[Rfam]
RNA sequence: GCCAAAUGAUGUUAAAGUAGACGUCAAGAGCACUCUGUGCAAAGAUGACCCAGAUCUAUCACCCAAGACUGAUGGCU
Dot-bracket structure: ((((.........................((((...))))................................)))).